[Rfam]
RNA: DUF2693 RNA
RNA sequence: GAUCUUUGACAUACUUGAUACAAACAAUGGCGAAACGAAAUAAUCUGCGGGUGGAAGGCCCGCGCGUGAUUAACCAUUGUCGUUAGCCUGCGACCUAAUGUGCGCAGGGCGAAGCCGUGGAACGCACGGAACACCCGAGGCUCGAAAGCCUCCUGACGACAC
Numbered sequence: 001g002a003u004c005u006u007u008g009a010c011a012u013a014c015u016u017g018a019u020a021c022a023a024a025c026a027a028u029g030g031c032g033a034a035a036c037g038a039a040a041u042a043a044u045c046u047g048c049g050g051g052u053g054g055a056a057g058g059c060c061c062g063c064g065c066g067u068g069a070u071u072a073a074c075c076a077u078u079g080u081c082g083u084u085a086g087c088c089u090g091c092g093a094c095c096u097a098a099u100g101u102g103c104g105c106a107g108g109g110c111g112a113a114g115c116c117g118u119g120g121a122a123c124g125c126a127c128g129g130a131a132c133a134c135c136c137g138a139g140g141c142u143c144g145a146a147a148g149c150c151u152c153c154u155g156a157c158g159a160c161a162c
Base pairs, nucleotide, nucleotide: 047063048062049061050060051059079160080159081158082157083156084155085154086153087108088107089106090105091104092103115129116128117127118126119125137152138151139150140149
Dot-bracket structure: ..............................................(((((.......)))))...............((((((((((((((..........))))))......(((((.....))))).......((((........))))))))))))..